[Rfam]
RNA sequence: UGUCCCCAUGGCACAGGGUCCAGCUGUCGGCUGUAAUACCCGAUGGGUCGAUGAUGGUCCCUGUGUUUGGGGCG
Numbered sequence: 001u002g003u004c005c006c007c008a009u010g011g012c013a014c015a016g017g018g019u020c021c022a023g024c025u026g027u028c029g030g031c032u033g034u035a036a037u038a039c040c041c042g043a044u045g046g047g048u049c050g051a052u053g054a055u056g057g058u059c060c061c062u063g064u065g066u067u068u069g070g071g072g073c074g
Stems, first nucleotide, its partner, number of pairs: 002073001004072005010067009020057003025053008